Rfam assigns this 73-nucleotide RNA from Dioscorea zingiberensis to the family "Small nucleolar RNA snoR60". For this family Rfam cites "Fibrillarin genes encode both a conserved nucleolar protein and a novel small nucleolar RNA involved in ribosomal RNA methylation in Arabidopsis thaliana" (Barneche et al., J Biol Chem, 2000). The family's consensus secondary structure was predicted with PFOLD. It scores 64 bits against the family's covariance model. Its family is annotated with nucleolus and RNA processing in the Gene Ontology. Rfam classes the family as a C/D-box small nucleolar RNA.
[Rfam]
RNA sequence: AAGCAUGUGAUUUAACACCUUGGAUUCCCCUUCAUGACAUCUUUGUAUGAUGUAAAUUUGAGAUUCUGAUGCU
Numbered sequence: 001a002a003g004c005a006u007g008u009g010a011u012u013u014a015a016c017a018c019c020u021u022g023g024a025u026u027c028c029c030c031u032u033c034a035u036g037a038c039a040u041c042u043u044u045g046u047a048u049g050a051u052g053u054a055a056a057u058u059u060g061a062g063a064u065u066c067u068g069a070u071g072c073u
Base pairs, nucleotide, nucleotide: 002073003072004071005070